[Rfam]
RNA sequence: GAGCGAAGGUCCCAGCAGAGGGCAGGAUAACUCAUAGAUUGAGUGCUCUCUAACAUUUAAUUAAUUCCUUCGCAGAUUAGACUGCCGAAUCGUAGGACGCUCAAAUUUCAUUAGUUUUGGAUCGUCUUGAACCCUCGGCAACAUUUUU
Numbered sequence: 001g002a003g004c005g006a007a008g009g010u011c012c013c014a015g016c017a018g019a020g021g022g023c024a025g026g027a028u029a030a031c032u033c034a035u036a037g038a039u040u041g042a043g044u045g046c047u048c049u050c051u052a053a054c055a056u057u058u059a060a061u062u063a064a065u066u067c068c069u070u071c072g073c074a075g076a077u078u079a080g081a082c083u084g085c086c087g088a089a090u091c092g093u094a095g096g097a098c099g100c101u102c103a104a105a106u107u108u109c110a111u112u113a114g115u116u117u118u119g120g121a122u123c124g125u126c127u128u129g130a131a132c133c134c135u136c137g138g139c140a141a142c143a144u145u146u147u148u
Stems, first nucleotide, its partner, number of pairs: 003073007011020001013018001025049002031043004084139005096126002099123001101120005
The family of this 148-nucleotide sequence from Cucurbita maxima is "Small nucleolar RNA snoR145". The base pairs follow the family's consensus structure, which was predicted with mfold. A reference for the family is Chen and Wu (2009), "Mining small RNA sequencing data: a new approach to identify small nucleolar RNAs in Arabidopsis", Nucleic Acids Res. It scores 115 bits against the family's covariance model. It is annotated as an H/ACA-box small nucleolar RNA.